[Rfam]
Overview
Rfam assigns this 82-nucleotide RNA sequence from Fusarium fujikuroi to the family "tRNA".
RNA sequence: GCCCCGUUGGCUCAGUGGUAAAGCGUAUCACUAGUAACCAUGCGAAAUGAUAAGAUCACUGGUUCGAUUCCAGUACGGGGCA
Numbered sequence: 001g002c003c004c005c006g007u008u009g010g011c012u013c014a015g016u017g018g019u020a021a022a023g024c025g026u027a028u029c030a031c032u033a034g035u036a037a038c039c040a041u042g043c044g045a046a047a048u049g050a051u052a053a054g055a056u057c058a059c060u061g062g063u064u065c066g067a068u069u070c071c072a073g074u075a076c077g078g079g080g081c082a
Stems, first nucleotide, its partner, number of pairs: 001081007010024003026052005058074005

Overview: The match comes from Rfam's covariance-model search (57 bits). Pairs were carried over by alignment from the consensus structure, which is taken from published work. Rfam links the family to the GO term triplet codon-amino acid adaptor activity.